[Rfam]
RNA sequence: ACAAGGUAAAAGAAUACUUUGCGUAUAAUUUAGGGGAUAUGGCCCAAAGUUUCUACCAGACCACCGUAAAUGGUCUGACUACGCAGAUUAGUAAUAUUUAG
Numbered sequence: 001a002c003a004a005g006g007u008a009a010a011a012g013a014a015u016a017c018u019u020u021g022c023g024u025a026u027a028a029u030u031u032a033g034g035g036g037a038u039a040u041g042g043c044c045c046a047a048a049g050u051u052u053c054u055a056c057c058a059g060a061c062c063a064c065c066g067u068a069a070a071u072g073g074u075c076u077g078a079c080u081a082c083g084c085a086g087a088u089u090a091g092u093a094a095u096a097u098u099u100a101g
Base pairs, nucleotide, nucleotide: 018087019086020085021084022083023082024081025080029048030047031046033045034044035043057077058076059075060074061073062072063071

Rfam assigns this 101-nucleotide RNA sequence from Ornithinibacillus hominis to the family "Purine riboswitch aptamer". NCBI's taxonomy places the organism under Bacteria, Bacillota, Caryophanales, Bacillaceae, Ornithinibacillus. The match comes from Rfam's covariance-model search (86 bits). Pairs were carried over by alignment from the consensus structure, which is taken from published work.